[Rfam]
RNA sequence: CGAGAGAAACCUCGUUAAGGAACUCGGCAAAUUAGCCCCGUAUCUUCGGAAGAAGGGGUCCUCCCCGAUGUGACCUUAAUUCUAAGUGAGCAUUGAGGAGGCGCAGUGAAAGGGCCCUGGCGACUGUUUACCAAAAACAUAGCACUCUGCUAACUCGUAAGAGGACGUAUAGGGUGUGACACGUGACCAAUGCCGAAAGGUUAAGGUGAGUGGUUAUCCUGCUUCGGCAGGAGAAGCUUCGAGCUGAAGCCCCGGUGAAUGUCGGCCGUAACUAUAACGGUCCUAAGGUAGCGAAAUUCCUUGUCGGGUAAGUUCCGACCUGCACGAAUCGUGUAACGAUCAGGGCACUGUCUCAACGAGGAUCUCG
Dot-bracket structure: ((((.....(((((((.(((..............(((((...((....))....)))))(((((..........((((.(....).))))......)))))(...).......(((((((((..(((.........)))..(((((((((...(((....)))...)..))))))))..((((.(((..((((((...(((...((...(.(((..((((((....))))))...))).)...))...))).))))..)))))((((((.......))))))(...).....(.........((((((.....))))))).........))))...)).)))))))....))).)))))))..))))
Annotation:
Bacterial large subunit ribosomal RNA: a 367-nucleotide part of an RNA from uncultured bacterium AD249-B8.